[Rfam]
RNA sequence: AGCACUUGCUUUUGCUUUUGUUUUGUUUGUGGACAAAGACAUAGGCAAAAGCACAAGAUAAGUGCUGUCUUGAAGCCCAGAACUCACCGUUCAGUCUGAGUGUUGAUACAGAUAAGAAGGAACUGA
Numbered sequence: 001a002g003c004a005c006u007u008g009c010u011u012u013u014g015c016u017u018u019u020g021u022u023u024u025g026u027u028u029g030u031g032g033a034c035a036a037a038g039a040c041a042u043a044g045g046c047a048a049a050a051g052c053a054c055a056a057g058a059u060a061a062g063u064g065c066u067g068u069c070u071u072g073a074a075g076c077c078c079a080g081a082a083c084u085c086a087c088c089g090u091u092c093a094g095u096c097u098g099a100g101u102g103u104u105g106a107u108a109c110a111g112a113u114a115a116g117a118a119g120g121a122a123c124u125g126a
Base pairs, nucleotide, nucleotide: 002052003051006048007047008046009045011043014040016038017037018036019035020034021033026031062123063122065120066119068117069116070115071114072113078105079104080103082101083100084099085098086097